[Rfam]
This 139-nucleotide RNA from Dinoponera quadriceps belongs to the Rfam family "U11 spliceosomal RNA".
RNA sequence: AAAAAGGGUGCACGCUACUUCAAUAGCGCGUUAUCUCAACUUAACGUCGGGAUGGCGGGGUAUGGCUAUCAAGACAUACCCUGUACGUAAUUUUUGUGAAUACGAGGCUAUUGGCUGCCAAUUAAGCACCGAUGCCUCU
Numbered sequence: 001a002a003a004a005a006g007g008g009u010g011c012a013c014g015c016u017a018c019u020u021c022a023a024u025a026g027c028g029c030g031u032u033a034u035c036u037c038a039a040c041u042u043a044a045c046g047u048c049g050g051g052a053u054g055g056c057g058g059g060g061u062a063u064g065g066c067u068a069u070c071a072a073g074a075c076a077u078a079c080c081c082u083g084u085a086c087g088u089a090a091u092u093u094u095u096g097u098g099a100a101u102a103c104g105a106g107g108c109u110a111u112u113g114g115c116u117g118c119c120a121a122u123u124a125a126g127c128a129c130c131g132a133u134g135c136c137u138c139u
Stems, first nucleotide, its partner, number of pairs: 008086005013028005029057009039047002058081007105137004110133005116128003

The base pairs follow the family's consensus structure, which is taken from published work.